This 181-nucleotide sequence from Salarias fasciatus belongs to the Rfam family "Small nucleolar RNA SNORA81". Taxonomically the source falls in Salarias (Eukaryota, Gnathostomata, Acanthomorphata, Blenniidae). Rfam classes the family as an H/ACA-box small nucleolar RNA. Its family is annotated with RNA processing and nucleolus in the Gene Ontology. The family has 28 seed sequences and 1,161 matches in Rfam 15.1. For this family Rfam cites "A novel experimental approach for systematic identification of box H/ACA snoRNAs from eukaryotes" (Gu et al., Nucleic Acids Res, 2005).

[Rfam]
RNA sequence: CACUUCUCUCUAAAGCACCCCGCUCGAACUGCAGGAGUCGGACCUCCGGGCUCGGCUCCUGCGGCUGUGUAAGCUCGGGUACACCAGGGAAGGAGAUCAAGCCACGGCGUCGAACCGAGGCGAGGAGGGACCUCUUUCUGAAUGUCCAGUGUCCUCUGCCUCCAGAUGCUGUGAUACAUAU
Numbered sequence: 001c002a003c004u005u006c007u008c009u010c011u012a013a014a015g016c017a018c019c020c021c022g023c024u025c026g027a028a029c030u031g032c033a034g035g036a037g038u039c040g041g042a043c044c045u046c047c048g049g050g051c052u053c054g055g056c057u058c059c060u061g062c063g064g065c066u067g068u069g070u071a072a073g074c075u076c077g078g079g080u081a082c083a084c085c086a087g088g089g090a091a092g093g094a095g096a097u098c099a100a101g102c103c104a105c106g107g108c109g110u111c112g113a114a115c116c117g118a119g120g121c122g123a124g125g126a127g128g129g130a131c132c133u134c135u136u137u138c139u140g141a142a143u144g145u146c147c148a149g150u151g152u153c154c155u156c157u158g159c160c161u162c163c164a165g166a167u168g169c170u171g172u173g174a175u176a177c178a179u180a181u
Base pairs, nucleotide, nucleotide: 018079019078022074023073024072028068029067031065034059035058037056038055039054040053041052043050044049101175103173104172105171106170107169108168109167123152125150128147129146130145